[Rfam]
RNA sequence: ACAUGACCCGUGCCCGGCAGGAGCGGGGGACCCACCAGGCACGACCGCCUGUCCCGGUCUCCGCGACAGGCUCGGGGUGCAGCCGCGCACCGCGCGGCAGGGCAGCUCCCGCCCGAACCCGACAGCUCACCCCGCAGGCACCGGAGAGGAAUG
Numbered sequence: 001a002c003a004u005g006a007c008c009c010g011u012g013c014c015c016g017g018c019a020g021g022a023g024c025g026g027g028g029g030a031c032c033c034a035c036c037a038g039g040c041a042c043g044a045c046c047g048c049c050u051g052u053c054c055c056g057g058u059c060u061c062c063g064c065g066a067c068a069g070g071c072u073c074g075g076g077g078u079g080c081a082g083c084c085g086c087g088c089a090c091c092g093c094g095c096g097g098c099a100g101g102g103c104a105g106c107u108c109c110c111g112c113c114c115g116a117a118c119c120c121g122a123c124a125g126c127u128c129a130c131c132c133c134g135c136a137g138g139c140a141c142c143g144g145a146g147a148g149g150a151a152u153g
Stems, first nucleotide, its partner, number of pairs: 007138002013021002023135006033074001075120003083097004100114004
RNA: c-di-AMP riboswitch aptamer (ydaO/yuaA leader)